[Rfam]
Shown here is a 168-nucleotide RNA sequence from Paenibacillus selenitireducens, a member of the family "c-di-AMP riboswitch aptamer (ydaO/yuaA leader)".
The organism belongs to Paenibacillus, within Bacteria.
Rfam links the family to the GO terms cyclic-di-AMP binding and regulation of gene expression.

RNA sequence: CAAAUGUAUUCGCUGAAUCCUUGAAUGGAAAAGGAACGGGGGAACCAAUCGACUGUCAAGCUUUUGACGUCAUGGGGUGAAUCUCAGUGACAUAACUCUAUGUACUGAGUAGGGCGACUCUCACGCCCGAAUCCGUCAGCUAACCUCGUAAGCGUGUAGAGAGGCAAC
Numbered sequence: 001c002a003a004a005u006g007u008a009u010u011c012g013c014u015g016a017a018u019c020c021u022u023g024a025a026u027g028g029a030a031a032a033g034g035a036a037c038g039g040g041g042g043a044a045c046c047a048a049u050c051g052a053c054u055g056u057c058a059a060g061c062u063u064u065u066g067a068c069g070u071c072a073u074g075g076g077g078u079g080a081a082u083c084u085c086a087g088u089g090a091c092a093u094a095a096c097u098c099u100a101u102g103u104a105c106u107g108a109g110u111a112g113g114g115c116g117a118c119u120c121u122c123a124c125g126c127c128c129g130a131a132u133c134c135g136u137c138a139g140c141u142a143a144c145c146u147c148g149u150a151a152g153c154g155u156g157u158a159g160a161g162a163g164g165c166a167a168c
Stems, first nucleotide, its partner, number of pairs: 011154004018035005036149006046074002075134003083109007112128004